Annotation: HDV ribozyme from F. prausnitzii: a 75-nucleotide RNA from Dinothrombium tinctorium. The organism belongs to Dinothrombium, within Eukaryota.
RNA sequence: GGAGAGUGAACACUUUGCCACCUCCUCGUGGUACUCUCUGGGCAACAGGUUGUCAAAACCUGGCUAAGAGCCAAG
Number, nucleotide and partner (000 for none) at each position: 001g039002g038003a037004g036005a035006g034007u033008g000009a000010a000011c000012a000013c000014u000015u000016u000017g000018c000019c000020a032021c031022c030023u000024c000025c000026u000027c000028g000029u000030g022031g021032u020033a007034c006035u005036c004037u003038c002039u001040g000041g000042g000043c000044a000045a000046c062047a061048g060049g059050u058051u000052g000053u000054c000055a000056a000057a000058a050059c049060c048061u047062g046063g000064c000065u000066a000067a000068g000069a000070g000071c000072c000073a000074a000075g000

Background
A reference for the family is Webb et al. (2009), "Widespread occurrence of self-cleaving ribozymes", Science.